Rfam assigns this 165-nucleotide RNA from Shuttleworthella satelles to the family "Clostridiales-1 RNA". The family's RNA type in Rfam is small RNA. NCBI's taxonomy places the organism under Bacteria, Bacillota, Clostridia, Lachnospirales, Shuttleworthella satelles.
[Rfam]
RNA sequence: AGAUAGAAUCGUUGAAAUUUCCCUGCGCAUGAGACGCUUGCGUGCUCAGGCGCUCAUGAUUCGAGACGUGCUCUACAUGAGCAUGAAGCCAUGCGAAGCAGGGCGGGAAUGCGAAUGUAGGGAGGAUUGCGAGAGCGCGAAGCGCGGAGCAAUCCGUGAUCAUCA
Numbered sequence: 001a002g003a004u005a006g007a008a009u010c011g012u013u014g015a016a017a018u019u020u021c022c023c024u025g026c027g028c029a030u031g032a033g034a035c036g037c038u039u040g041c042g043u044g045c046u047c048a049g050g051c052g053c054u055c056a057u058g059a060u061u062c063g064a065g066a067c068g069u070g071c072u073c074u075a076c077a078u079g080a081g082c083a084u085g086a087a088g089c090c091a092u093g094c095g096a097a098g099c100a101g102g103g104c105g106g107g108a109a110u111g112c113g114a115a116u117g118u119a120g121g122g123a124g125g126a127u128u129g130c131g132a133g134a135g136c137g138c139g140a141a142g143c144g145c146g147g148a149g150c151a152a153u154c155c156g157u158g159a160u161c162a163u164c165a
Stems, first nucleotide, its partner, number of pairs: 002161003010068004017061001019059002025053004030048002034043003071122008081112004088104003092100003124155007135145004